[Rfam]
This 147-nucleotide RNA sequence from Microbotryum lychnidis-dioicae belongs to the Rfam family "Group II catalytic intron D1-D4-7". Rfam describes the family as follows. Group II introns are found in rRNA, tRNA and mRNA of organelles in fungi, plants and protists, and also in mRNA in bacteria.
Nucleotides: 147
Base pairs, nucleotide, nucleotide: 002019003018004017005016006015007014028070029069030068031067032066033061034060035059036058037057038056039055040054042053043052044051045050086097087096088095089094100130101129103127137147
Number, partner (000 for none) and nucleotide at each position: 001000g002019a003018a004017u005016u006015a007014a008000u009000u010000c011000a012000c013000u014007u015006u016005a017004a018003u019002u020000c021000a022000g023000c024000c025000a026000a027000u028070u029069u030068a031067g032066a033061c034060a035059u036058g037057c038056a039055u040054g041000u042053a043052u044051u045050a046000g047000u048000a049000a050045u051044a052043a053042u054040c055039a056038u057037g058036u059035g060034u061033g062000a063000a064000g065000c066032u067031c068030u069029a070028a071000a072000a073000u074000a075000a076000a077000g078000u079000a080000a081000a082000u083000u084000a085000c086097u087096c088095u089094u090000g091000a092000a093000a094089a095088a096087g097086a098000a099000g100130a101129a102000a103127a104000u105000a106000g107000u108000u109000a110000a111000c112000a113000u114000u115000u116000a117000c118000g119000a120000a121000g122000g123000c124000u125000a126000a127103u128000g129101u130100u131000u132000a133000u134000g135000g136000u137147u138000a139000g140000c141000g142000a143000a144000a145000g146000c147137g